[Rfam]
RNA sequence: UUAUAUGAGAGUUUGAUCCUGGCUCAGGAUGAACGCUGGCGGCGUGCCUAACACAUGCAAGUCGAACGGAGAUUACGGACGGAAGUUUUCGGAUGGAAGCCUGUAAUUCUUAGUGGCGGACGGGUGAGUAACGCGUGGGCAACCUGCCCUAUACAGGGGGAUAGCAGCUGGAAACGGCUGGUAAGACCGCAUAAGUCGGUUAAAUCGCAUGAUUUGAUCGGGAAAUGAGCAAUCAGGUAUAGGAUGGGCCCGCGUCCGAUUAGCCAGUUGGCAGGGUAAAAGCCUACCAAAGCGACGAUCGGUAGCCGGACUGAGAGGUCGGACGGCCACAUUGGGACUGAGACACGGCCCAAACUCCUACGGGAGGCAGCAGUGGGGGAUAUUGCACAAUGGAGGAAACUCUGAUGCAGCGACGCCGCGUGAGUGAAGAAGUAUUUCGGUAUGUAAAGCUCUAUCAGCAGGGAAGAUGAUGACGGUACCUGACUAAGAAGCCCCGGCUAACUACGUGCCAGCAGCCGCGGUAAUACGUAGGGGGCAAGCGUUAUCCGGAUUUACUG
Numbered sequence: 001u002u003a004u005a006u007g008a009g010a011g012u013u014u015g016a017u018c019c020u021g022g023c024u025c026a027g028g029a030u031g032a033a034c035g036c037u038g039g040c041g042g043c044g045u046g047c048c049u050a051a052c053a054c055a056u057g058c059a060a061g062u063c064g065a066a067c068g069g070a071g072a073u074u075a076c077g078g079a080c081g082g083a084a085g086u087u088u089u090c091g092g093a094u095g096g097a098a099g100c101c102u103g104u105a106a107u108u109c110u111u112a113g114u115g116g117c118g119g120a121c122g123g124g125u126g127a128g129u130a131a132c133g134c135g136u137g138g139g140c141a142a143c144c145u146g147c148c149c150u151a152u153a154c155a156g157g158g159g160g161a162u163a164g165c166a167g168c169u170g171g172a173a174a175c176g177g178c179u180g181g182u183a184a185g186a187c188c189g190c191a192u193a194a195g196u197c198g199g200u201u202a203a204a205u206c207g208c209a210u211g212a213u214u215u216g217a218u219c220g221g222g223a224a225a226u227g228a229g230c231a232a233u234c235a236g237g238u239a240u241a242g243g244a245u246g247g248g249c250c251c252g253c254g255u256c257c258g259a260u261u262a263g264c265c266a267g268u269u270g271g272c273a274g275g276g277u278a279a280a281a282g283c284c285u286a287c288c289a290a291a292g293c294g295a296c297g298a299u300c301g302g303u304a305g306c307c308g309g310a311c312u313g314a315g316a317g318g319u320c321g322g323a324c325g326g327c328c329a330c331a332u333u334g335g336g337a338c339u340g341a342g343a344c345a346c347g348g349c350c351c352a353a354a355c356u357c358c359u360a361c362g363g364g365a366g367g368c369a370g371c372a373g374u375g376g377g378g379g380a381u382a383u384u385g386c387a388c389a390a391u392g393g394a395g396g397a398a399a400c401u402c403u404g405a406u407g408c409a410g411c412g413a414c415g416c417c418g419c420g421u422g423a424g425u426g427a428a429g430a431a432g433u434a435u436u437u438c439g440g441u442a443u444g445u446a447a448a449g450c451u452c453u454a455u456c457a458g459c460a461g462g463g464a465a466g467a468u469g470a471u472g473a474c475g476g477u478a479c480c481u482g483a484c485u486a487a488g489a490a491g492c493c494c495c496g497g498c499u500a501a502c503u504a505c506g507u508g509c510c511a512g513c514a515g516c517c518g519c520g521g522u523a524a525u526a527c528g529u530a531g532g533g534g535g536c537a538a539g540c541g542u543u544a545u546c547c548g549g550a551u552u553u554a555c556u557g
Base pairs, nucleotide, nucleotide: 009025010024011023012022013021027547028546029545030544032543033542034541035540036539037538039419040418041417042416043415044414045412046411047377052375053374054373056372057371058370061117062116063115066114067113069111070110076091077090078089079088081086124330125329126328133255134254135253136252137251138250139249140248143247144246148243149242150241151240152239153238154237156190158188159187165180166179167178168177169176170175196221197220198219199218200217201216202215204213205212206211226235227234228233256302257301258300263293264292268290269289270288271287273285274284275283305327306326307325308324309320310319311318312317332353333352334351335350336349355366356365357364358363383409385408386407387406391404392403393402394401395400422452423451424450425449432443433442434441435440456488459482460481461480462479466474491536492535493534494533495532502531503530504529505528506527512519513518
Overview
The family of this 557-nucleotide part of an RNA from Abiotrophia defectiva is "Bacterial small subunit ribosomal RNA".